RNA: RAGATH-7-assoc RNA
RNA sequence: CAAGAGGAUAUCUUACUAUUAUUACAACCCAAUGUAAUAUGAAUAUUCGUGUAUAGCGUAGCUUCUCUUAAUUAGAGGCAGUGAUAAUAUCAUGUAGGCGCAGAAAUGUAAGAACCUCUGG
Numbered sequence: 001c002a003a004g005a006g007g008a009u010a011u012c013u014u015a016c017u018a019u020u021a022u023u024a025c026a027a028c029c030c031a032a033u034g035u036a037a038u039a040u041g042a043a044u045a046u047u048c049g050u051g052u053a054u055a056g057c058g059u060a061g062c063u064u065c066u067c068u069u070a071a072u073u074a075g076a077g078g079c080a081g082u083g084a085u086a087a088u089a090u091c092a093u094g095u096a097g098g099c100g101c102a103g104a105a106a107u108g109u110a111a112g113a114a115c116c117u118c119u120g121g
Base pairs, nucleotide, nucleotide: 001121003119004118005117006116007115011113012112013111014110015109016108023036024035025034026033037052038051039050040049041048042047066076067075068074082092083091084090